[Rfam]
RNA sequence: AGCGAUCCACACAACUGGCGACAAAAGGCUGAGCCUUAAGAUGGAUGAAACCAUCGGGGAGUGUGAAAAGAACCUAGCCGCUCGCCUGGGCAUAGACA
Numbered sequence: 001a002g003c004g005a006u007c008c009a010c011a012c013a014a015c016u017g018g019c020g021a022c023a024a025a026a027g028g029c030u031g032a033g034c035c036u037u038a039a040g041a042u043g044g045a046u047g048a049a050a051c052c053a054u055c056g057g058g059g060a061g062u063g064u065g066a067a068a069a070g071a072a073c074c075u076a077g078c079c080g081c082u083c084g085c086c087u088g089g090g091c092a093u094a095g096a097c098a
Stems, first nucleotide, its partner, number of pairs: 003070001006067001008065005015058002017086005041054004077091003

Source information: ZMP/ZTP riboswitch aptamer (pfl RNA motif): a 98-nucleotide RNA sequence. A reference for the family is Tran et al. (2020), "Parallel Discovery Strategies Provide a Basis for Riboswitch Ligand Design", Cell Chem Biol. The family has 185 seed sequences and 3,295 matches in Rfam 15.1. It is one of the family's seed sequences.